[Rfam]
RNA: Small nucleolar RNA SNORD58
RNA sequence: UGGUGGUGAUGACUGUCUUGGGACACCUUUGGAAUAACCAUGAAAUAGUGACUACUUUCUGAGUCAU
Number, nucleotide and partner (000 for none) at each position: 001u066002g065003g064004u063005g000006g000007u000008g000009a000010u000011g000012a000013c000014u000015g000016u000017c000018u000019u000020g000021g000022g000023a000024c000025a000026c000027c000028u000029u000030u000031g000032g000033a000034a000035u000036a000037a000038c000039c000040a000041u000042g000043a000044a000045a000046u000047a000048g000049u000050g000051a000052c000053u000054a000055c000056u000057u000058u000059c000060u000061g000062a000063g004064u003065c002066a001067u000